[Rfam]
RNA sequence: UGACGGGGGCCCGCACAAGCGGUGGAGCAUGUGGUUUAAUUCGAAGCAACGCGCAGAACCUUACCAACCCUUGACAUGCCAGGGCCGCCCCAGAGAUGGGGUUUUCCCUUCGGGGACCUGGACACAGGUGCUGCAUGGCUGUCGUCAGCUCGUGUCGUGAGAUGUUGGGUUAAGUCCCGCAACGAGCGCAACCCCCACUGUCAGUUGCCAUCAUUAAGUUGGGCACUCUGGCAGAACUGCCGGUGACAAGCCGGAGGAAGGCGGGGAUGACGUCAAGUCCUCAUGGCCCUUACGGGUUGGGCUACACACGUGCUACAAUGGUGGUGACAGUGGGCAGCGACCACGCGAGUGGAAGCGAAUCUCCAAAAGCCAUCUCAGUUCGGAUUGCACUCUGCAACUCGGGUGCAUGAAGUUGGAAUCGCUAGUAAUCGCGGAUCAGCACGCCGCGGUGAAUACGUUCCCGGGCCUUGUACACACCGCCCGUCACACCAUGGGAGUUGGCUUUACCCGAAGCCGGUGCGCUAACCGCAAGGAGGCAGCCGACCACGGUACGGUCAGCGACUGGGGUGAAGUCGUAACAAGG
Numbered sequence: 001u002g003a004c005g006g007g008g009g010c011c012c013g014c015a016c017a018a019g020c021g022g023u024g025g026a027g028c029a030u031g032u033g034g035u036u037u038a039a040u041u042c043g044a045a046g047c048a049a050c051g052c053g054c055a056g057a058a059c060c061u062u063a064c065c066a067a068c069c070c071u072u073g074a075c076a077u078g079c080c081a082g083g084g085c086c087g088c089c090c091c092a093g094a095g096a097u098g099g100g101g102u103u104u105u106c107c108c109u110u111c112g113g114g115g116a117c118c119u120g121g122a123c124a125c126a127g128g129u130g131c132u133g134c135a136u137g138g139c140u141g142u143c144g145u146c147a148g149c150u151c152g153u154g155u156c157g158u159g160a161g162a163u164g165u166u167g168g169g170u171u172a173a174g175u176c177c178c179g180c181a182a183c184g185a186g187c188g189c190a191a192c193c194c195c196c197a198c199u200g201u202c203a204g205u206u207g208c209c210a211u212c213a214u215u216a217a218g219u220u221g222g223g224c225a226c227u228c229u230g231g232c233a234g235a236a237c238u239g240c241c242g243g244u245g246a247c248a249a250g251c252c253g254g255a256g257g258a259a260g261g262c263g264g265g266g267a268u269g270a271c272g273u274c275a276a277g278u279c280c281u282c283a284u285g286g287c288c289c290u291u292a293c294g295g296g297u298u299g300g301g302c303u304a305c306a307c308a309c310g311u312g313c314u315a316c317a318a319u320g321g322u323g324g325u326g327a328c329a330g331u332g333g334g335c336a337g338c339g340a341c342c343a344c345g346c347g348a349g350u351g352g353a354a355g356c357g358a359a360u361c362u363c364c365a366a367a368a369g370c371c372a373u374c375u376c377a378g379u380u381c382g383g384a385u386u387g388c389a390c391u392c393u394g395c396a397a398c399u400c401g402g403g404u405g406c407a408u409g410a411a412g413u414u415g416g417a418a419u420c421g422c423u424a425g426u427a428a429u430c431g432c433g434g435a436u437c438a439g440c441a442c443g444c445c446g447c448g449g450u451g452a453a454u455a456c457g458u459u460c461c462c463g464g465g466c467c468u469u470g471u472a473c474a475c476a477c478c479g480c481c482c483g484u485c486a487c488a489c490c491a492u493g494g495g496a497g498u499u500g501g502c503u504u505u506a507c508c509c510g511a512a513g514c515c516g517g518u519g520c521g522c523u524a525a526c527c528g529c530a531a532g533g534a535g536g537c538a539g540c541c542g543a544c545c546a547c548g549g550u551a552c553g554g555u556c557a558g559c560g561a562c563u564g565g566g567g568u569g570a571a572g573u574c575g576u577a578a579c580a581a582g583g
Stems, first nucleotide, its partner, number of pairs: 001474002003471003007468007015458002019422005024316001026314008034305002040055001042053002064300007077124002079121005087102006105116004127289002130287004136283002138278003141274001143272002148187006154163003166179004193266004198234007208223002212221002237257002240254005320374006332363003337356002342351003381412001386407007428450007477582001479579001482575002487569004492564003497559007505551004513544001515542004521537003526533002
Dot-bracket structure: (((((.(((((((.((..((((((.((((((((((....(.((........)).)........(((((((......(((((((...((((((....))))))..((((....))))))))).))..((.((((..((((((.((...(((((((((....)))..((((......))))..)))))).....((((.(((((((...((..((......))))....)))))))..((.(((((.....))))).)).....))))....)).).)))...))))))))....)))))))...)).)))))))).)...((((((......(((..((...(((....)))...))....))).....))))))......(....(((((((........)))))))....).....))))).....(((((((.........)))))))......))...)))))))))).))..(.(..((...((((.(((..(((((((.((((....(.((((..(((..((....)).))).)))).)...)))).)))))))..))).))))....))...)..).

Shown here is a 583-nucleotide part of an RNA from Rhodospirillum centenum, a member of the family "Bacterial small subunit ribosomal RNA". The family has 99 seed sequences and 42,628 matches in Rfam 15.1. Pairs were carried over by alignment from the consensus structure, which is taken from published work. Rfam links the family to the GO terms structural constituent of ribosome and ribosome. It scores 1570 bits against the family's covariance model. NCBI's taxonomy places the organism under Bacteria, Pseudomonadati, Alphaproteobacteria, Rhodospirillales, Rhodospirillum centenum.